[Rfam]
RNA: Small nucleolar RNA SNORD42
Organism: Rousettus aegyptiacus
RNA sequence: GCACAGAUGAUGGAAAAAUAACUCUUUAGAAAAGAAUGACAUGAACAAAGGAACCACUGAUGUGC
Numbered sequence: 001g002c003a004c005a006g007a008u009g010a011u012g013g014a015a016a017a018a019u020a021a022c023u024c025u026u027u028a029g030a031a032a033a034g035a036a037u038g039a040c041a042u043g044a045a046c047a048a049a050g051g052a053a054c055c056a057c058u059g060a061u062g063u064g065c
Stems, first nucleotide, its partner, number of pairs: 001065005